[Rfam]
RNA: ASpks TB sRNA
RNA sequence: CUUCACCGAGCCCAGCUGCAGCGGCCGUUCGGCCGGCCGCUCCUUCCCGUACGUGGCCAGCAGCGCCUGCGCCUC
Numbered sequence: 001c002u003u004c005a006c007c008g009a010g011c012c013c014a015g016c017u018g019c020a021g022c023g024g025c026c027g028u029u030c031g032g033c034c035g036g037c038c039g040c041u042c043c044u045u046c047c048c049g050u051a052c053g054u055g056g057c058c059a060g061c062a063g064c065g066c067c068u069g070c071g072c073c074u075c
Stems, first nucleotide, its partner, number of pairs: 015025003032070002038065002043060002047056003